Rfam assigns this 277-nucleotide sequence from Streptomyces sp. F-3 to the family "Streptomyces sRNA 4677". It scores 76 bits against the family's covariance model. The source organism's lineage runs through Bacteria, Bacillati, Kitasatosporales, Streptomycetaceae and Streptomyces. The pairing is the family consensus, mapped onto this sequence. The literature on the family includes a 2014 paper in PLoS One by Hindra et al., "Complex intra-operonic dynamics mediated by a small RNA in Streptomyces coelicolor". About the family: Located in the intergenic region between anti-sigma factor SCO4677 gene and a putative regulatory protein gene SCO4676. scr4677 expression requires the SCO4677 activity and scr4677 sRNA itself seem to affect the levels of the SCO4676-associated transcripts.
[Rfam]
RNA sequence: GGGCUGCGGGCGGUAAAAGACCAAAGAACUCCAGGAAAAAACCCCACCCAACCAACCAAACCUCGCAGCGGUCACUCGGCUGGGUGAAACCGGUUGGUAUGGGUGGCGCGGGGGUGAGGCGGGCGGGCAGGCUCGCCGCGAGGCGACCGUGCGGUGCCUGCUCGGCAGUCUGCUCGGCCCCUGUUCGACGCCUGCUUGAUCCCCCAUAUGCAUCGGCCCCCGCCGGGACCGACAUCCCGGUGCGAGGGCCUGACCAACGAGGAAGAAAGGCCCUUCC
Numbered sequence: 001g002g003g004c005u006g007c008g009g010g011c012g013g014u015a016a017a018a019g020a021c022c023a024a025a026g027a028a029c030u031c032c033a034g035g036a037a038a039a040a041a042c043c044c045c046a047c048c049c050a051a052c053c054a055a056c057c058a059a060a061c062c063u064c065g066c067a068g069c070g071g072u073c074a075c076u077c078g079g080c081u082g083g084g085u086g087a088a089a090c091c092g093g094u095u096g097g098u099a100u101g102g103g104u105g106g107c108g109c110g111g112g113g114g115u116g117a118g119g120c121g122g123g124c125g126g127g128c129a130g131g132c133u134c135g136c137c138g139c140g141a142g143g144c145g146a147c148c149g150u151g152c153g154g155u156g157c158c159u160g161c162u163c164g165g166c167a168g169u170c171u172g173c174u175c176g177g178c179c180c181c182u183g184u185u186c187g188a189c190g191c192c193u194g195c196u197u198g199a200u201c202c203c204c205c206a207u208a209u210g211c212a213u214c215g216g217c218c219c220c221c222g223c224c225g226g227g228a229c230c231g232a233c234a235u236c237c238c239g240g241u242g243c244g245a246g247g248g249c250c251u252g253a254c255c256a257a258c259g260a261g262g263a264a265g266a267a268a269g270g271c272c273c274u275u276c277c
Stems, first nucleotide, its partner, number of pairs: 003258001005256002012063001072087006093189005215250005221244003225238004261277005